[Rfam]
RNA: c-di-AMP riboswitch aptamer (ydaO/yuaA leader)
Organism: Streptomyces marincola
RNA sequence: CGCGCUCCGUCGCCGAAUCCGGCGUGUGGGAAACAACUGCACUCAUGGAACCGGGGAACCACCACUUGGGGUGAAUCGGGCAGCCGGCGGCCACCCGCGGCCGGUCACUCGUAGGAGACCUUCCUGCUCCGAACCCGUCAGCUAACCCGGUAGGCGAGAGGAAGGAAAGGA
Numbered sequence: 001c002g003c004g005c006u007c008c009g010u011c012g013c014c015g016a017a018u019c020c021g022g023c024g025u026g027u028g029g030g031a032a033a034c035a036a037c038u039g040c041a042c043u044c045a046u047g048g049a050a051c052c053g054g055g056g057a058a059c060c061a062c063c064a065c066u067u068g069g070g071g072u073g074a075a076u077c078g079g080g081c082a083g084c085c086g087g088c089g090g091c092c093a094c095c096c097g098c099g100g101c102c103g104g105u106c107a108c109u110c111g112u113a114g115g116a117g118a119c120c121u122u123c124c125u126g127c128u129c130c131g132a133a134c135c136c137g138u139c140a141g142c143u144a145a146c147c148c149g150g151u152a153g154g155c156g157a158g159a160g161g162a163a164g165g166a167a168a169g170g171a
Stems, first nucleotide, its partner, number of pairs: 011156004018049003050151006060068002069136003077111004114130004